Shown here is a 134-nucleotide sequence from Bacillus sp. 1NLA3E, a member of the family "FMN riboswitch aptamer (RFN element)".
Nucleotides: 134
Stems, first nucleotide, its partner, number of pairs: 003132008017029003031114002033104002035063004058102002066079003084100005106117003
Number, partner (000 for none) and nucleotide at each position: 001000a002000u003132u004131c005130a006129u007128c008127u009126u010125c011000g012000g013000g014000g015000u016000a017029g018028g019027g020000u021000g022000a023000a024000a025000u026000u027019c028018c029017c030000a031114a032113u033104c034103g035063g036062c037061g038060g039000u040000a041000u042000u043000g044000a045000a046000u047000u048000u049000u050000u051000u052000u053000u054000c055000u056000a057000a058102g059101c060038c061037c062036g063035c064000g065000a066079g067078c068077u069000c070000u071000u072000u073000u074000u075000u076000g077068a078067g079066c080000a081000g082000g083000a084100u085099u086098u087097g088096g089000u090000g091000u092000g093000a094000u095000u096088c097087c098086a099085a100084a101059g102058c103034c104033g105000a106117c107116a108115g109000u110000a111000u112000a113032g114031u115108c116107u117106g118000g119000a120000u121000g122000g123000g124000a125010g126009a127008a128007g129006a130005u131004g132003a133000a134000g
Pairs were carried over by alignment from the consensus structure, which is taken from published work.
The source organism's lineage runs through Bacteria, Bacillati, Bacilli, Caryophanales and Bacillus.